A member of the RNA family "G-CSF factor stem-loop destabilising element (SLDE)" from Myotis lucifugus, 97 nucleotides long. It is annotated as a cis-regulatory element. The family's consensus secondary structure is taken from published work. The source organism's lineage runs through Eukaryota, Gnathostomata, Boreoeutheria, Laurasiatheria and Myotis.
[Rfam]
RNA sequence: CCGAGGGCACCCGACUUGGGGCCCUUGGAAGCAUCAGAAGCUCUCCCACGUGGGAGACAAGACAGCCCUGUUUAAUAUUUAAACAGCAGUGUUCGCC
Numbered sequence: 001c002c003g004a005g006g007g008c009a010c011c012c013g014a015c016u017u018g019g020g021g022c023c024c025u026u027g028g029a030a031g032c033a034u035c036a037g038a039a040g041c042u043c044u045c046c047c048a049c050g051u052g053g054g055a056g057a058c059a060a061g062a063c064a065g066c067c068c069u070g071u072u073u074a075a076u077a078u079u080u081a082a083a084c085a086g087c088a089g090u091g092u093u094c095g096c097c
Base pairs, nucleotide, nucleotide: 003026004025005024006023007022008021010020011019012018034062035061042057043056044055045054046053047052068086069085070084071083072082073081074080075079
Rfam describes the family as follows. This family represents the granulocyte colony-stimulating factor stem-loop destabilising element (G-CSF SLDE). G-CSF is secreted by fibroblasts and endothelial cells in response to the inflammatory mediators interleukin-1 (IL-1) and tumour necrosis factor alpha and by activated macrophages. The sequence is in the family's curated seed alignment.